[Rfam]
RNA sequence: GCGACGCACUGGGGGAGCUGGUAACGGCUGAGAGGAAUCAUGUGAUUCUGACCCUUUGAACUCGAUCUGGAUAAUACCAGCGUGGGGAAGUGCAGCCAGAAUUGU
Numbered sequence: 001g002c003g004a005c006g007c008a009c010u011g012g013g014g015g016a017g018c019u020g021g022u023a024a025c026g027g028c029u030g031a032g033a034g035g036a037a038u039c040a041u042g043u044g045a046u047u048c049u050g051a052c053c054c055u056u057u058g059a060a061c062u063c064g065a066u067c068u069g070g071a072u073a074a075u076a077c078c079a080g081c082g083u084g085g086g087g088a089a090g091u092g093c094a095g096c097c098a099g100a101a102u103u104g105u
Base pairs, nucleotide, nucleotide: 006093007092008091009090010089011055012054013053014052016049017028018027019026020025035048036047037046038045039044061086062085063084064083067080068079069078070077
This 105-nucleotide RNA from Terribacillus sp. AE2B 122 belongs to the Rfam family "TPP riboswitch aptamer (THI element)". The organism belongs to Terribacillus, within Bacteria. It scores 79 bits against the family's covariance model.